[Rfam]
RNA: Vault RNA
Organism: Scyliorhinus torazame
RNA sequence: GCGUCAGCUUUAGCUCACUGGUUACUUCACAGCGUUAACUUUCGAGUAAGUUCGAGCUUGUCUCACCGUGGGCGCUGCCUGGCGUUUUC
Numbered sequence: 001g002c003g004u005c006a007g008c009u010u011u012a013g014c015u016c017a018c019u020g021g022u023u024a025c026u027u028c029a030c031a032g033c034g035u036u037a038a039c040u041u042u043c044g045a046g047u048a049a050g051u052u053c054g055a056g057c058u059u060g061u062c063u064c065a066c067c068g069u070g071g072g073c074g075c076u077g078c079c080u081g082g083c084g085u086u087u088u089c
Stems, first nucleotide, its partner, number of pairs: 002084006013073004019068003026056003